[Rfam]
RNA sequence: UUAUUCGAGGAGCGCUGCAGCAACAAACAGGUUGUCAGGCUCGAUUAAUCAUCUAUUUUCAACGGCGCUCAUAUAAA
Numbered sequence: 001u002u003a004u005u006c007g008a009g010g011a012g013c014g015c016u017g018c019a020g021c022a023a024c025a026a027a028c029a030g031g032u033u034g035u036c037a038g039g040c041u042c043g044a045u046u047a048a049u050c051a052u053c054u055a056u057u058u059u060c061a062a063c064g065g066c067g068c069u070c071a072u073a074u075a076a077a
Base pairs, nucleotide, nucleotide: 002047003046005044006043007042008041021034022033023032024031
The family of this 77-nucleotide RNA from Gammaproteobacteria bacterium ESL0073 is "SAH (S-adenosyl-L-homocysteine) riboswitch aptamer". Its family is annotated with regulation of gene expression and S-adenosylhomocysteine metabolic process in the Gene Ontology. NCBI's taxonomy places the organism under Bacteria, Pseudomonadati, Pseudomonadota, Gammaproteobacteria.